[Rfam]
RNA sequence: UGUCAAGAGUCUUUGACGCCAUCUUCGGCGAGCCGGUUUCUUUUGCCUGAAGGAAGGUGAAGGAAAAUG
Dot-bracket structure: .........(((((..((((.(.(((...(.((.((.....)).)).)...))))))))))))).....
Numbered sequence: 001u002g003u004c005a006a007g008a009g010u011c012u013u014u015g016a017c018g019c020c021a022u023c024u025u026c027g028g029c030g031a032g033c034c035g036g037u038u039u040c041u042u043u044u045g046c047c048u049g050a051a052g053g054a055a056g057g058u059g060a061a062g063g064a065a066a067a068u069g
Stems, first nucleotide, its partner, number of pairs: 010064005017059004022055001024054003030048001032046002035043002